[Rfam]
RNA sequence: ACUGUGGAGUGUACAAGAACUUGUGAGUAGCGUAUUGCAAAAGCAUACACAUUGAAGCAGUAA
Numbered sequence: 001a002c003u004g005u006g007g008a009g010u011g012u013a014c015a016a017g018a019a020c021u022u023g024u025g026a027g028u029a030g031c032g033u034a035u036u037g038c039a040a041a042a043g044c045a046u047a048c049a050c051a052u053u054g055a056a057g058c059a060g061u062a063a
Stems, first nucleotide, its partner, number of pairs: 001061005009050005022045003030038003
Source information:
This 63-nucleotide RNA belongs to the Rfam family "RAGATH-18 RNA". Rfam describes the family as follows. Actinobacteria, Firmicutes, Fusobacteria, Thermotogae (1 example). The sequence is in the family's curated seed alignment. It is annotated as a small RNA.